Rfam assigns this 243-nucleotide sequence from Trifolium pratense to the family "MIR2655 microRNA precursor family".
RNA sequence: CCCUUAUCUUUUAAAUGUUUCAAAUUGGUCCCUUAUCUUUUCUGCAGGUUUCAAGUUGGUCCCUUCUGCCAAAUUUUUCACUAUUACCGUUAAAUUUCUACAGUGUCAUCUUUUCAAUGGUGUUUUCUCUGUUUGUCAGGUGUCCAAAUUUAACGGUAAUAGUGAAAAAUUUGACGGAAUGGACCAAAUUGAAACCUGCAGAAAAGAUAAGGGACCAACUUGAAACUUUUAAAAGAUAAGGGA
Numbered sequence: 001c002c003c004u005u006a007u008c009u010u011u012u013a014a015a016u017g018u019u020u021c022a023a024a025u026u027g028g029u030c031c032c033u034u035a036u037c038u039u040u041u042c043u044g045c046a047g048g049u050u051u052c053a054a055g056u057u058g059g060u061c062c063c064u065u066c067u068g069c070c071a072a073a074u075u076u077u078u079c080a081c082u083a084u085u086a087c088c089g090u091u092a093a094a095u096u097u098c099u100a101c102a103g104u105g106u107c108a109u110c111u112u113u114u115c116a117a118u119g120g121u122g123u124u125u126u127c128u129c130u131g132u133u134u135g136u137c138a139g140g141u142g143u144c145c146a147a148a149u150u151u152a153a154c155g156g157u158a159a160u161a162g163u164g165a166a167a168a169a170u171u172u173g174a175c176g177g178a179a180u181g182g183a184c185c186a187a188a189u190u191g192a193a194a195c196c197u198g199c200a201g202a203a204a205a206g207a208u209a210a211g212g213g214a215c216c217a218a219c220u221u222g223a224a225a226c227u228u229u230u231a232a233a234a235g236a237u238a239a240g241g242g243a
Stems, first nucleotide, its partner, number of pairs: 002241007023220001025218001027216003031212013045198003
Dot-bracket structure: .(((((((..............(.(.(((.(((((((((((((.(((....................................................................................................................................................))).))))))))))))).))).).)..............)))))))..
About this RNA: Pairs were carried over by alignment from the consensus structure, which was predicted with RNAalifold. A search with the family's covariance model found it, with a score of 132 bits.